This 131-nucleotide RNA belongs to the Rfam family "Small nucleolar RNA SNORA38".
It is one of the family's seed sequences.
ACA38 is a member of the H/ACA class of snoRNA that guide the sites of modification of uridines to pseudouridines.
Gene Ontology terms of the family: Cajal body, RNA processing and nucleolus.
[Rfam]
RNA sequence: CCCUCCUACAAAGGCGUGUCUGUGGUUUCCUGUCUUUGGACACGUAAGAAUUGGAGGCAAAGAAAUAUGGACUUGGAGACGUCUGGGGCCAGCUUGCUCCCUGCAGGCUCUAGUUCAACCAUCCUACAUAG
Numbered sequence: 001c002c003c004u005c006c007u008a009c010a011a012a013g014g015c016g017u018g019u020c021u022g023u024g025g026u027u028u029c030c031u032g033u034c035u036u037u038g039g040a041c042a043c044g045u046a047a048g049a050a051u052u053g054g055a056g057g058c059a060a061a062g063a064a065a066u067a068u069g070g071a072c073u074u075g076g077a078g079a080c081g082u083c084u085g086g087g088g089c090c091a092g093c094u095u096g097c098u099c100c101c102u103g104c105a106g107g108c109u110c111u112a113g114u115u116c117a118a119c120c121a122u123c124c125u126a127c128a129u130a131g
Stems, first nucleotide, its partner, number of pairs: 002057005015044007024030002069124003073121001091109007